A member of the RNA family "c-di-AMP riboswitch aptamer (ydaO/yuaA leader)" from Pelotomaculum thermopropionicum, 168 nucleotides long.
[Rfam]
Nucleotides: 168
Stems, first nucleotide, its partner, number of pairs: 011152004018029003030147006040048002049132003057105006108126004
Number, partner (000 for none) and nucleotide at each position: 001000c002000u003000g004000u005000a006000u007000g008000c009000a010000u011152c012151g013150c014149u015000g016000a017000a018029u019028u020027c021000c022000g023000a024000a025000a026000g027020g028019a029018a030147g031146c032145g033144g034143g035142g036000g037000a038000c039000c040048c041047a042000a043000c044000c045000a046000u047041u048040g049132g050131g051130g052000u053000g054000a055000a056000u057105c058104c059103c060102g061101u062100u063000c064000a065000g066000c067000u068000g069000c070000c071000g072000g073000c074000a075000a076000c077000c078000c079000u080000g081000c082000g083000g084000a085000c086000a087000c088000c089000a090000a091000c092000c093000g094000g095000c096000a097000g098000c099000u100062a101061a102060c103059g104058g105057g106000u107000a108126g109125g110124g111123c112000u113000a114000a115000u116000u117000c118000c119000u120000u121000c122000g123111g124110c125109c126108c127000g128000a129000a130051u131050c132049c133000g134000u135000c136000a137000g138000c139000u140000a141000a142035c143034c144033u145032c146031g147030c148000a149014a150013g151012c152011g153000u154000u155000g156000a157000a158000a159000g160000g161000a162000a163000g164000g165000a166000u167000a168000a

Annotation:
NCBI's taxonomy places the organism under Bacteria, Bacillati, Bacillota, Desulfotomaculaceae, Pelotomaculum thermopropionicum.